RNA sequence: CCUGUGAAUCCUAAAUAAAAAUACAAUUUUGAGAGCAAUUCACAAC
Numbered sequence: 001c002c003u004g005u006g007a008a009u010c011c012u013a014a015a016u017a018a019a020a021a022u023a024c025a026a027u028u029u030u031g032a033g034a035g036c037a038a039u040u041c042a043c044a045a046c
Stems, first nucleotide, its partner, number of pairs: 003044007016031005